[Rfam]
Rfam assigns this 189-nucleotide RNA from Phyllostomus discolor to the family "Small nucleolar RNA U3".

RNA sequence: AAGACUAUACUUUCAGGGAUCAUUUCUACAGUUUGUUACUGAAGAAAUGAAACCACAAGGAGGAGGCACAGCGCUCUUCCUGAAUGUGAAGCAGCUGUUGGUGAUGCUUUUGCAACUACUAUUGGCUGUUGAUGAUCGUUCUUCUCUUCCUUCCAGAGUGUAAGAGGGAGAGGAUGCAGUUGUAGUGGU
Numbered sequence: 001a002a003g004a005c006u007a008u009a010c011u012u013u014c015a016g017g018g019a020u021c022a023u024u025u026c027u028a029c030a031g032u033u034u035g036u037u038a039c040u041g042a043a044g045a046a047a048u049g050a051a052a053c054c055a056c057a058a059g060g061a062g063g064a065g066g067c068a069c070a071g072c073g074c075u076c077u078u079c080c081u082g083a084a085u086g087u088g089a090a091g092c093a094g095c096u097g098u099u100g101g102u103g104a105u106g107c108u109u110u111u112g113c114a115a116c117u118a119c120u121a122u123u124g125g126c127u128g129u130u131g132a133u134g135a136u137c138g139u140u141c142u143u144c145u146c147u148u149c150c151u152u153c154c155a156g157a158g159u160g161u162a163a164g165a166g167g168g169a170g171a172g173g174a175u176g177c178a179g180u181u182g183u184a185g186u187g188g189u
Base pairs, nucleotide, nucleotide: 002040003039006035007034009032010031011030015027016026017025018024052189053188054187055186056185071177072176073175075173076172077171078169079168080167081166084139085138086137093127094126095125096124099121100120101119102118103116105114106113107112142163143162144160146158147157148156
Rfam classes the family as a C/D-box small nucleolar RNA. Rfam links the family to the GO terms RNA processing and nucleolus. From the family's description: Small nucleolar RNAs (snoRNAs) are involved in the processing and modification of rRNA in the nucleolus. There are two main classes of snoRNAs: the box C/D class, and the box H/ACA class. U3 snoRNA is a member of the box C/D class.